Shown here is a 74-nucleotide sequence from Brassicogethes aeneus, a member of the family "mir-932 microRNA precursor family".

RNA sequence: CGUAUCGUCAAUUCCGUAGUGCAUUGCAGUGUUUGUAGUAUCAGCUGCAAGCAGUGCGGAAGUGAGGAUACGGC
Numbered sequence: 001c002g003u004a005u006c007g008u009c010a011a012u013u014c015c016g017u018a019g020u021g022c023a024u025u026g027c028a029g030u031g032u033u034u035g036u037a038g039u040a041u042c043a044g045c046u047g048c049a050a051g052c053a054g055u056g057c058g059g060a061a062g063u064g065a066g067g068a069u070a071c072g073g074c
Stems, first nucleotide, its partner, number of pairs: 006067001008065003013060005020053003024050005
Dot-bracket structure: .....(.(((..(((((..(((.(((((.................))))))))..)))))..))).).......
A search with the family's covariance model found it, with a score of 73 bits. The literature on the family includes a 2010 paper in Nat Genet by Berezikov et al., "Evolutionary flux of canonical microRNAs and mirtrons in Drosophila".